[Rfam]
Shown here is a 414-nucleotide RNA sequence from Yersinia pestis, a member of the family "cspA thermoregulator". Rfam links the family to the GO terms regulation of translation and response to temperature stimulus. It is annotated as an RNA thermoregulator.

RNA sequence: CCCGGUUGACCGUAACAUUUAUGUCCGCAGUUUUAGUAAAGCAUUUCCCCGUAUUAGCGUUAUCAGACAGAUACCUCUUCUCCGUGAAAUUCCUUCUAAGUGCCCCAUAAGUUCUACCCAAGCCUAUCUAGUCGCCUGUGGCGGCAAUUAAAAAUUAUUGAAGGAAGUAUCUCUAUGUCUAAUAAAAUGACUGGUUUAGUAAAAUGGUUUGACGCUGGUAAAGGUUUUGGUUUCAUCACUCCGGCUGAUGGCAGCAAAGAUGUGUUCGUUCACUUCUCUGCUAUCCAGAGCAAUGAUUUCAAAACCCUGGAUGAAGGCCAAAAUGUGGAGUUCUCUAUCGAGAACGGCGCUAAAGGCCCUGCAGCGGUAAACGUUAUUGCGCUGUAACCGUCAAUAAUAUCUCGGUGUGACUUU
Numbered sequence: 001c002c003c004g005g006u007u008g009a010c011c012g013u014a015a016c017a018u019u020u021a022u023g024u025c026c027g028c029a030g031u032u033u034u035a036g037u038a039a040a041g042c043a044u045u046u047c048c049c050c051g052u053a054u055u056a057g058c059g060u061u062a063u064c065a066g067a068c069a070g071a072u073a074c075c076u077c078u079u080c081u082c083c084g085u086g087a088a089a090u091u092c093c094u095u096c097u098a099a100g101u102g103c104c105c106c107a108u109a110a111g112u113u114c115u116a117c118c119c120a121a122g123c124c125u126a127u128c129u130a131g132u133c134g135c136c137u138g139u140g141g142c143g144g145c146a147a148u149u150a151a152a153a154a155u156u157a158u159u160g161a162a163g164g165a166a167g168u169a170u171c172u173c174u175a176u177g178u179c180u181a182a183u184a185a186a187a188u189g190a191c192u193g194g195u196u197u198a199g200u201a202a203a204a205u206g207g208u209u210u211g212a213c214g215c216u217g218g219u220a221a222a223g224g225u226u227u228u229g230g231u232u233u234c235a236u237c238a239c240u241c242c243g244g245c246u247g248a249u250g251g252c253a254g255c256a257a258a259g260a261u262g263u264g265u266u267c268g269u270u271c272a273c274u275u276c277u278c279u280g281c282u283a284u285c286c287a288g289a290g291c292a293a294u295g296a297u298u299u300c301a302a303a304a305c306c307c308u309g310g311a312u313g314a315a316g317g318c319c320a321a322a323a324u325g326u327g328g329a330g331u332u333c334u335c336u337a338u339c340g341a342g343a344a345c346g347g348c349g350c351u352a353a354a355g356g357c358c359c360u361g362c363a364g365c366g367g368u369a370a371a372c373g374u375u376a377u378u379g380c381g382c383u384g385u386a387a388c389c390g391u392c393a394a395u396a397a398u399a400u401c402u403c404g405g406u407g408u409g410a411c412u413u414u
Stems, first nucleotide, its partner, number of pairs: 004020002007017002026243002029240003041233001046230002048224002052222001059219004064214001066213001068211001070210002073208003079177001081175001084173001092164005098158001100119001102117001134145003179194003183190001246340006259267002270328004275323001277322001279320002281317002284311005294303001346359002349357003361385004365379005388405003393400001